[Rfam]
RNA sequence: UCUUUCAUCAUUUUUGUGAUUUUUGCAAUUCUGAAAUAAGGGAAAUUGCAUAGUCACAAAAGUGAUGGGAGC
Numbered sequence: 001u002c003u004u005u006c007a008u009c010a011u012u013u014u015u016g017u018g019a020u021u022u023u024u025g026c027a028a029u030u031c032u033g034a035a036a037u038a039a040g041g042g043a044a045a046u047u048g049c050a051u052a053g054u055c056a057c058a059a060a061a062g063u064g065a066u067g068g069g070a071g072c
Stems, first nucleotide, its partner, number of pairs: 002071005008065013024050007
Rfam assigns this 72-nucleotide RNA sequence from Armadillidium nasatum to the family "mir-153 microRNA precursor family". Its family is annotated with RISC complex and miRNA-mediated post-transcriptional gene silencing in the Gene Ontology. Rfam 15.1 lists 1,565 matches to the family in 711 species. Lineage of the source: Eukaryota > Protostomia > Mandibulata > Crinocheta > Armadillidium.